The family of this 106-nucleotide RNA sequence from Arabidopsis lyrata is "Small nucleolar RNA Z266". The family's RNA type in Rfam is C/D-box small nucleolar RNA. Rfam links the family to the GO terms nucleolus and RNA processing. It scores 56 bits against the family's covariance model. For this family Rfam cites "The high diversity of snoRNAs in plants: identification and comparative study of 120 snoRNA genes from Oryza sativa" (Chen et al., Nucleic Acids Res, 2003).
RNA sequence: AAACGGCGAGAAUGAUGAACCAAUUAGAUGCGCGAAUGAGGGGUAAUUUUCUCAUUAUGAGCUUAAAACUGUUUGAGGCAUAUUAACAUUUCUGAUAUCGCCACUU
Number, nucleotide and partner (000 for none) at each position: 001a106002a105003a000004c000005g102006g101007c100008g099009a098010g096011a000012a000013u000014g000015a000016u000017g000018a000019a000020c000021c000022a000023a000024u000025u000026a000027g000028a000029u000030g000031c000032g000033c000034g000035a000036a000037u000038g000039a000040g000041g000042g000043g000044u000045a000046a000047u000048u000049u000050u000051c000052u000053c000054a000055u000056u000057a000058u000059g000060a000061g000062c000063u000064u000065a000066a000067a000068a000069c000070u000071g000072u000073u000074u000075g000076a000077g000078g000079c000080a000081u000082a000083u000084u000085a000086a000087c000088a000089u000090u000091u000092c000093u000094g000095a000096u010097a000098u009099c008100g007101c006102c005103a000104c000105u002106u001